[Rfam]
RNA sequence: GAUUUUCCAUUAUAUGUUUACCUCCACGCGGUGAAAAUCGGGCAACGUCAAAUAAAUUGGCGGCAAAAGAACGU
Dot-bracket structure: (((((((............(((.......))))))))))......(((((.......)))))............